[Rfam]
RNA: Small nucleolar RNA snoR145
Organism: Nelumbo nucifera
RNA sequence: AAAUGAAGGUCCCAGCAGAGGGGUAUGAAAGUCAAAAUAAGAUAACUCUCUAACACUAAAAUACCUUUGUAGAUUGAUAUGUAUUGGCCGAUGAUUCGUAGGACGCCCAAAUGCUUCUUUGAUUUUUGCAGCAUCUGGAACCCUCGGCUACAUCCUA
Numbered sequence: 001a002a003a004u005g006a007a008g009g010u011c012c013c014a015g016c017a018g019a020g021g022g023g024u025a026u027g028a029a030a031g032u033c034a035a036a037a038u039a040a041g042a043u044a045a046c047u048c049u050c051u052a053a054c055a056c057u058a059a060a061a062u063a064c065c066u067u068u069g070u071a072g073a074u075u076g077a078u079a080u081g082u083a084u085u086g087g088c089c090g091a092u093g094a095u096u097c098g099u100a101g102g103a104c105g106c107c108c109a110a111a112u113g114c115u116u117c118u119u120u121g122a123u124u125u126u127u128g129c130a131g132c133a134u135c136u137g138g139a140a141c142c143c144u145c146g147g148c149u150a151c152a153u154c155c156u157a
Stems, first nucleotide, its partner, number of pairs: 003070007011020001013018001027048001031043003087148005093142001102135002105132002108128004